[Rfam]
Nucleotides: 275
Stems, first nucleotide, its partner, number of pairs: 001005001017025003035212004040207001045107006055098004108157002118148004161253001163252005215239009259273005
Number, partner (000 for none) and nucleotide at each position: 001005c002000u003000g004000u005001g006000g007000g008000g009000a010000c011000c012000c013000c014000u015000u016000c017025g018024g019023g020000g021000u022000c023019c024018c025017c026000u027000c028000a029000g030000g031000a032000a033000a034000a035212c036211a037210g038209g039000g040207u041000a042000a043000a044000u045107u046106g047105c048104a049103u050102g051000a052000a053000a054000c055098u056097c057096c058095u059000g060000a061000a062000a063000u064000u065000a066000a067000a068000c069000a070000a071000u072000a073000u074000a075000u076000a077000g078000c079000g080000c081000u082000a083000u084000u085000g086000u087000a088000u089000u090000a091000a092000a093000u094000a095058a096057g097056g098055a099000c100000a101000a102050u103049g104048u105047g106046c107045a108157g109156c110000c111000a112000a113000g114000c115000a116000u117000a118148u119147a120146u121145u122000a123000a124000a125000u126000a127000a128000a129000a130000g131000a132000u133000u134000u135000u136000c137000u138000a139000a140000u141000a142000a143000g144000g145121a146120a147119u148118a149000u150000a151000u152000g153000a154000a155000g156109g157108u158000u159000c160000a161253a162000c163252g164251a165250c166249u167248a168000g169000u170000a171000g172000g173000u174000g175000a176000g177000u178000a179000c180000u181000u182000u183000a184000u185000u186000u187000a188000c189000a190000a191000u192000a193000a194000u195000c196000c197000u198000g199000c200000c201000a202000c203000g204000a205000a206000a207040a208000c209038c210037c211036u212035g213000c214000a215239a216238c217237c218236a219235u220234a221233a222232a223231a224000a225000g226000a227000a228000c229000u230000u231223u232222u233221u234220u235219a236218u237217g238216g239215u240000u241000g242000a243000u244000g245000a246000c247000a248167u249166a250165g251164u252163c253161u254000a255000a256000a257000c258000c259273a260272u261271u262270u263269u264000g265000a266000a267000a268000a269263g270262a271261a272260a273259u274000g275000g
A member of the RNA family "Group I catalytic intron" from Handroanthus impetiginosus, 275 nucleotides long. On this family, see Cate et al., Science 1996: "Crystal structure of a group I ribozyme domain: principles of RNA packing". Its family is annotated with Group I intron splicing in the Gene Ontology.